[Rfam]
RNA sequence: CUCCCGUAAUAAGUAGUAGUGCCGCAGGUAGAUCCAUCGUGCUACCUGAGCCCUGCUCCUUAACAUGGUGG
Numbered sequence: 001c002u003c004c005c006g007u008a009a010u011a012a013g014u015a016g017u018a019g020u021g022c023c024g025c026a027g028g029u030a031g032a033u034c035c036a037u038c039g040u041g042c043u044a045c046c047u048g049a050g051c052c053c054u055g056c057u058c059c060u061u062a063a064c065a066u067g068g069u070g071g
Base pairs, nucleotide, nucleotide: 001071002070004068005067006066007065010062011061012060013059015057016056017055018054019053025048026047027046028045029044030043